[Rfam]
RNA sequence: CGAUACCGCGCGGGAGAGUCUUCGGCCGGGUGCACAGCCCGGCGACGGAAGCGCCGAAGGGGCAAAUCCUCCCCGGAACCUCUCAGGCGACAGGACCGUGUGGGGCAG
Number, nucleotide and partner (000 for none) at each position: 001c000002g000003a000004u000005a000006c103007c102008g101009c100010g099011c098012g097013g096014g000015a000016g000017a000018g000019u000020c051021u050022u049023c048024g000025g000026c000027c000028g000029g000030g000031u000032g000033c000034a000035c000036a000037g000038c000039c000040c000041g000042g000043c000044g000045a000046c000047g000048g023049a022050a021051g020052c000053g088054c087055c086056g084057a083058a000059g000060g082061g081062g080063c000064a000065a000066a000067u075068c000069c000070u000071c000072c000073c000074c000075g067076g000077a000078a000079c000080c062081u061082c060083u057084c056085a000086g055087g054088c053089g000090a000091c000092a000093g000094g000095a000096c013097c012098g011099u010100g009101u008102g007103g006104g000105g000106c000107a000108g000
The family of this 108-nucleotide RNA sequence from Nocardioides euryhalodurans is "Glycine riboswitch aptamer".
Its family is annotated with glycine biosynthetic process in the Gene Ontology.
Pairs were carried over by alignment from the consensus structure.